Rfam assigns this 94-nucleotide RNA from Ifrita kowaldi to the family "mir-146 microRNA precursor family". The family's consensus secondary structure was predicted with WAR.
RNA sequence: AUUUAUUCUCAGCUUUGAGAACUGAAUUCCAUGUGUUGUAGUUGAAUCUUCUCUCAGACCCAUUGGGCUCAGUUCUUCAGCUUGGAUAUUUCUG
Dot-bracket structure: .......((.(((....((((((((.......(.((.....................)).).......))))))))...))).)).........
Numbered sequence: 001a002u003u004u005a006u007u008c009u010c011a012g013c014u015u016u017g018a019g020a021a022c023u024g025a026a027u028u029c030c031a032u033g034u035g036u037u038g039u040a041g042u043u044g045a046a047u048c049u050u051c052u053c054u055c056a057g058a059c060c061c062a063u064u065g066g067g068c069u070c071a072g073u074u075c076u077u078c079a080g081c082u083u084g085g086a087u088a089u090u091u092c093u094g
Stems, first nucleotide, its partner, number of pairs: 008085002011082003018076008033061001035059002